[Rfam]
RNA: IS605-orfB-II RNA
RNA sequence: CAUGAUUAACUUUAAGUUAGGAUUGUAUAGAGGGUAGUCGCAGUCGCCCCAACUCCGAUUUGAAGCUAUAGAUUAUAUUUGUAGUUUCAAGUAAGGUGAGAAGCAACUAUUAGGUUGGAAACUUUAAUUUUAUCGAGAAAUUAAGGAACUGU
Number, nucleotide and partner (000 for none) at each position: 001c000002a000003u000004g000005a000006u020007u019008a018009a017010c016011u015012u000013u000014a000015a011016g010017u009018u008019a007020g006021g000022a000023u000024u000025g000026u000027a000028u000029a000030g000031a000032g049033g048034g047035u046036a000037g000038u000039c000040g152041c151042a150043g149044u000045c000046g035047c034048c033049c032050c000051a000052a000053c100054u099055c098056c000057g000058a092059u091060u090061u089062g088063a087064a086065g085066c084067u083068a000069u000070a080071g079072a078073u077074u000075a000076u000077a073078u072079u071080u070081g000082u000083a067084g066085u065086u064087u063088c062089a061090a060091g059092u058093a000094a000095g000096g000097u000098g055099a054100g053101a000102a000103g000104c117105a116106a115107c114108u113109a000110u000111u000112a000113g108114g107115u106116u105117g104118g000119a000120a000121a000122c146123u145124u144125u143126a142127a141128u140129u139130u138131u000132a000133u000134c000135g000136a000137g000138a130139a129140a128141u127142u126143a125144a124145g123146g122147a000148a000149c043150u042151g041152u040